[Rfam]
RNA: Ribosomal protein L13 leader
Organism: Secundilactobacillus mixtipabuli
RNA sequence: GGUAUUGUUUGCCCCACGAUAAGCCCCGGAAACUUGUUAACGGAUGUCAAACAAACA
Numbered sequence: 001g002g003u004a005u006u007g008u009u010u011g012c013c014c015c016a017c018g019a020u021a022a023g024c025c026c027c028g029g030a031a032a033c034u035u036g037u038u039a040a041c042g043g044a045u046g047u048c049a050a051a052c053a054a055a056c057a
Stems, first nucleotide, its partner, number of pairs: 006053006018038006